[Rfam]
RNA sequence: GCAGACCCCCCGUGUGGUGGUACCUCACUGAACUCCCCCAGGGCCGGAAGGCAGCAAGGGCAGGUGAGCUCUUCCAGGUGCGCGGGGGGUCCUUUCA
Numbered sequence: 001g002c003a004g005a006c007c008c009c010c011c012g013u014g015u016g017g018u019g020g021u022a023c024c025u026c027a028c029u030g031a032a033c034u035c036c037c038c039c040a041g042g043g044c045c046g047g048a049a050g051g052c053a054g055c056a057a058g059g060g061c062a063g064g065u066g067a068g069c070u071c072u073u074c075c076a077g078g079u080g081c082g083c084g085g086g087g088g089g090u091c092c093u094u095u096c097a
Stems, first nucleotide, its partner, number of pairs: 004091011015078001018076003022072001024068006035060003043052003
Annotation
A member of the RNA family "Bacterial small signal recognition particle RNA" from Oryzihumus leptocrescens, 97 nucleotides long. Lineage of the source: Bacteria > Actinomycetota > Actinomycetes > Micrococcales > Oryzihumus. From the family's description: The signal recognition particle (SRP) is a universally conserved ribonucleoprotein involved in the co-translational targeting of proteins to membranes.